[Rfam]
RNA sequence: UUGUGUUUUAGAGGCUGCGAUGGGCAAAUAGUACAUUGAAAUAGGCUAGGGAGCCGCAUGAUGUUCAAUGGAAAGGUGCAAUCGCCGAAGCGCUGACCUGCUCCCUACGGAUCAGUUGCUGGGACCGUGUUGAAUAAACAUGGGACUGUCAUCGGUAAAUCACCCACUUUACCGAUGGAGUGCUACUUCACAC
Number, nucleotide and partner (000 for none) at each position: 001u000002u000003g000004u000005g000006u000007u000008u000009u185010a184011g183012a000013g000014g000015c000016u000017g085018c084019g083020a082021u081022g000023g000024g079025c078026a077027a000028a000029u000030a000031g000032u000033a000034c070035a069036u068037u067038g066039a065040a064041a062042u000043a000044g000045g000046c000047u000048a000049g000050g000051g000052a000053g000054c000055c000056g000057c000058a000059u000060g000061a000062u041063g000064u040065u039066c038067a037068a036069u035070g034071g000072a000073a000074a000075g000076g000077u026078g025079c024080a000081a021082u020083c019084g018085c017086c000087g000088a000089a120090g119091c118092g117093c115094u114095g113096a112097c000098c110099u109100g108101c000102u000103c000104c000105c000106u000107a000108c100109g099110g098111a000112u096113c095114a094115g093116u000117u092118g091119c090120u089121g147122g146123g000124a000125c143126c142127g141128u140129g139130u138131u137132g000133a000134a000135u000136a000137a131138a130139c129140a128141u127142g126143g125144g000145a000146c122147u121148g000149u178150c177151a176152u175153c174154g173155g172156u171157a170158a169159a168160u000161c000162a000163c000164c000165c000166a000167c000168u159169u158170u157171a156172c155173c154174g153175a152176u151177g150178g149179a000180g000181u000182g000183c011184u010185a009186c000187u000188u000189c000190a000191c000192a000193c000